[Rfam]
RNA sequence: CUGAGCUAGUGAUGAUAAAGUUAUCCCUGUCUGAAGUUAAUCUUUCCUCUGUGGAAACAUGACUCUGAGGCUCAG
Numbered sequence: 001c002u003g004a005g006c007u008a009g010u011g012a013u014g015a016u017a018a019a020g021u022u023a024u025c026c027c028u029g030u031c032u033g034a035a036g037u038u039a040a041u042c043u044u045u046c047c048u049c050u051g052u053g054g055a056a057a058c059a060u061g062a063c064u065c066u067g068a069g070g071c072u073c074a075g
Base pairs, nucleotide, nucleotide: 001075002074003073004072005071006070007069
This 75-nucleotide sequence from Gavia stellata belongs to the Rfam family "Small nucleolar RNA R38". The source organism's lineage runs through Eukaryota, Eumetazoa, Saurischia, Gaviidae and Gavia. Rfam classes the family as a C/D-box small nucleolar RNA. Gene Ontology terms of the family: RNA processing and nucleolus. snoR38 is a C/D box small nucleolar RNA conserved across yeast, human, Arabidopsis and rice. It is encoded in the intron of elongation factor-1 gamma in both pombe and cerevisiae. snoR38 guides the methylation of 2'-O-ribose sites in 28S rRNA. On this family, see Qu et al., Nucleic Acids Res 2001: "Identification of 10 novel snoRNA gene clusters from Arabidopsis thaliana". The family's consensus secondary structure was predicted with PFOLD.